Source information:
The family of this 35-nucleotide RNA sequence from Callorhinus ursinus is "Iron response element I". Rfam classes the family as a cis-regulatory element. A reference for the family is Walden et al. (2006), "Structure of dual function iron regulatory protein 1 complexed with ferritin IRE-RNA", Science.
[Rfam]
RNA sequence: CUGGGUCUUGCUUCAACAGUGCUUGGACAGGAGAG
Numbered sequence: 001c002u003g004g005g006u007c008u009u010g011c012u013u014c015a016a017c018a019g020u021g022c023u024u025g026g027a028c029a030g031g032a033g034a035g
Base pairs, nucleotide, nucleotide: 001035002034006031007030008029010028012027013026014025015024016023017021